[Rfam]
RNA sequence: CGGGUCGGCCGGAGUGGUCGCUCGUCGGAGGGUCGCUUGCGGCACUCGCGGACGAGAGGAAAGUCCGGACACCACAAGGCAGCAUGCCGCGCGCAAGCGUCGGAGGUUCUGGGGCAACUCAGGGCAAUGGAAAGUGUCACAGAAAACAAACCGCCUUUUGGAGCUUCGGUUCUAAAAGGUAAGGGUGAAACGGCGGGGUAAGAGCCCACCGCUCCGACAGCAAUGAAGGAGGCACGACAAACCCCAUGCGGUGCAAGACAGAACAGGAGAAAGGCCCGCCUGGCCGCAAGCCCUCGCAAGGGGGUGGAUAACUCCGGGUAAUAGUCGCAUCCUGCGUGAGCGGGAGUCAGUGCCGCGAGGCGCUGUCAGAUAAAUGACCACGCCGUUGGCUGAAAAGCUGACGACACAAAAUCCGGCUUAUGAGGGCCGACCCACUUU
Dot-bracket structure: .((((((((((..((((((.((((((.(....................).))))))....[[[.[[[[[((((........((((((((...........)))(.((((((((....))))))))..)((...(((((............((((((((((((((....))))))))))))..)).......((.(((.......))).))(((((..((....))..)))).)..)))..)))))))))))))...(((.......(((..........................................)).)........))).................................................))))))..............................]]]]]]]].)...))))))))).....